[Rfam]
MAT2A 3'UTR stem loop E: a 67-nucleotide sequence from Rhinolophus ferrumequinum. The base pairs follow the family's consensus structure, which is taken from published work.
RNA sequence: CCAGCAUUCCCAGGUAGGUAAAGGUGUCCUACAGAAAAACUUUCAGUUAGACCUACUGGGGGUCUGA
Dot-bracket structure: .(((.((((((..((((((.(((((((...))......))))).)......))))).))))))))).
Numbered sequence: 001c002c003a004g005c006a007u008u009c010c011c012a013g014g015u016a017g018g019u020a021a022a023g024g025u026g027u028c029c030u031a032c033a034g035a036a037a038a039a040c041u042u043u044c045a046g047u048u049a050g051a052c053c054u055a056c057u058g059g060g061g062g063u064c065u066g067a
Stems, first nucleotide, its partner, number of pairs: 002066003006063006014056005019045001021043005026032002
Rfam classes the family as a cis-regulatory element.